[Rfam]
RNA sequence: GUUAUUUGAGGUGGUAAAAUUCGUGGCGACCACACGCCGAUGGUAUCGACAGGGGAAACCCGAGAGAUGUAGGAGAAAGCCACGCCUACCAAAUAAC
Numbered sequence: 001g002u003u004a005u006u007u008g009a010g011g012u013g014g015u016a017a018a019a020u021u022c023g024u025g026g027c028g029a030c031c032a033c034a035c036g037c038c039g040a041u042g043g044u045a046u047c048g049a050c051a052g053g054g055g056a057a058a059c060c061c062g063a064g065a066g067a068u069g070u071a072g073g074a075g076a077a078a079g080c081c082a083c084g085c086c087u088a089c090c091a092a093a094u095a096a097c
Stems, first nucleotide, its partner, number of pairs: 001097008011033005023083005035064001036044003069089005
A member of the RNA family "skipping-rope RNA", 97 nucleotides long. Rfam's curators put it in the seed alignment. By type it is a small RNA. The family's consensus secondary structure is taken from published work.